The family of this 60-nucleotide sequence from Bifidobacterium leontopitheci is "msiK RNA".
The match comes from Rfam's covariance-model search (59 bits).
The organism belongs to Bifidobacterium, within Bacteria.
Rfam classes the family as a cis-regulatory element.
RNA sequence: CACCGUAAUCCCUUUACAACGGAUCGUGAGGCACGUACCUGCCUCUGAAAGGAUGAGUAA
Dot-bracket structure: .........((.((((...........((((((......)))))))))).))........